[Rfam]
RNA sequence: UGACUCGUGGCAGGAGAGAUCCAAUGCCCCGGUGUUGGACGCCGACGGAGCAACUUCCUCCCCUGGAAACUCUCAGGCACCCAUACCGUCACGAAGAG
Number, nucleotide and partner (000 for none) at each position: 001u000002g000003a000004c000005u000006c093007g092008u091009g090010g089011c088012a000013g086014g000015a000016g000017a000018g000019a000020u039021c038022c037023a036024a000025u000026g000027c000028c000029c000030c000031g000032g000033u000034g000035u000036u023037g022038g021039a020040c000041g078042c077043c076044g074045a073046c000047g000048g072049a071050g070051c000052a000053a000054c065055u000056u000057c000058c000059u000060c000061c000062c000063c000064u000065g054066g000067a000068a000069a000070c050071u049072c048073u045074c044075a000076g043077g042078c041079a000080c000081c000082c000083a000084u000085a000086c013087c000088g011089u010090c009091a008092c007093g006094a000095a000096g000097a000098g000
Overview:
A member of the RNA family "Glycine riboswitch aptamer" from Neomicrococcus aestuarii, 98 nucleotides long. The pairing is the family consensus, mapped onto this sequence. NCBI's taxonomy places the organism under Bacteria, Bacillati, Actinomycetes, Micrococcaceae, Neomicrococcus.